Description:
This 87-nucleotide RNA from Centropus unirufus belongs to the Rfam family "Small nucleolar RNA SNORD71". Lineage of the source: Eukaryota > Deuterostomia > Dipnotetrapodomorpha > Sauria > Centropus. On this family, see Huttenhofer et al., EMBO J 2001: "RNomics: an experimental approach that identifies 201 candidates for novel, small, non-messenger RNAs in mouse". It is annotated as an H/ACA-box small nucleolar RNA. About the family: snoRNA HBII-239 belongs to the family of C/D snoRNAs.It is the human orthologue of the mouse MBII-239 described and is predicted to guide 2'O-ribose methylation of 5.8S rRNA on residue U14. Pairs were carried over by alignment from the consensus structure, which was predicted with RNAalifold.
[Rfam]
RNA sequence: GGUGCUGUUGGAGGAUGAAGCCUAUGAGUGAUCCAUCAACAGAGCAUGAUAAUGCUGUGCUGACACUCAAGCUGCUGACAAUGCACU
Numbered sequence: 001g002g003u004g005c006u007g008u009u010g011g012a013g014g015a016u017g018a019a020g021c022c023u024a025u026g027a028g029u030g031a032u033c034c035a036u037c038a039a040c041a042g043a044g045c046a047u048g049a050u051a052a053u054g055c056u057g058u059g060c061u062g063a064c065a066c067u068c069a070a071g072c073u074g075c076u077g078a079c080a081a082u083g084c085a086c087u
Stems, first nucleotide, its partner, number of pairs: 002086004007082003010076002013034004018029001036063003040059001044055003